Rfam assigns this 129-nucleotide RNA sequence from Channa argus to the family "Small nucleolar RNA SNORA44". The base pairs follow the family's consensus structure, which was predicted with PFOLD. Gene Ontology terms of the family: RNA processing and nucleolus. It is annotated as an H/ACA-box small nucleolar RNA. The literature on the family includes a 2001 paper in EMBO J by Huttenhofer et al., "RNomics: an experimental approach that identifies 201 candidates for novel, small, non-messenger RNAs in mouse". ACA44 is a member of the H/ACA class of snoRNA that guide the sites of modification of uridines to pseudouridines. A search with the family's covariance model found it, with a score of 65 bits. NCBI's taxonomy places the organism under Eukaryota, Gnathostomata, Actinopterygii, Ctenosquamata, Channa.

RNA sequence: CUGCAUGCUAUCCUAAGGACCUGGGCUUGUGUAGCUCUAGGUUCUCCAAGUGCAUGCAAGAAAAUAGGGUGGUCUUUGACUGUUGUGGUCCCUUUGUGCCAUCAACAGCCACUCAGCUGUCCAACACAU
Numbered sequence: 001c002u003g004c005a006u007g008c009u010a011u012c013c014u015a016a017g018g019a020c021c022u023g024g025g026c027u028u029g030u031g032u033a034g035c036u037c038u039a040g041g042u043u044c045u046c047c048a049a050g051u052g053c054a055u056g057c058a059a060g061a062a063a064a065u066a067g068g069g070u071g072g073u074c075u076u077u078g079a080c081u082g083u084u085g086u087g088g089u090c091c092c093u094u095u096g097u098g099c100c101a102u103c104a105a106c107a108g109c110c111a112c113u114c115a116g117c118u119g120u121c122c123a124a125c126a127c128a129u
Stems, first nucleotide, its partner, number of pairs: 013040002018037002021034003067122006082109002085102004